mir-375 microRNA precursor family: a 72-nucleotide sequence from Blomia tropicalis. Gene Ontology terms of the family: miRNA-mediated post-transcriptional gene silencing and RISC complex. The match comes from Rfam's covariance-model search (49 bits).
RNA sequence: GAUAACUUGAGCCGUAUGCAGCAAAGCUGAUAGACUAUUUCGUUUGCUUUGUUCGUUCGGCUCGAGUUAAUU
Numbered sequence: 001g002a003u004a005a006c007u008u009g010a011g012c013c014g015u016a017u018g019c020a021g022c023a024a025a026g027c028u029g030a031u032a033g034a035c036u037a038u039u040u041c042g043u044u045u046g047c048u049u050u051g052u053u054c055g056u057u058c059g060g061c062u063c064g065a066g067u068u069a070a071u072u
Stems, first nucleotide, its partner, number of pairs: 001071001003069001005067009017055002021052004026047002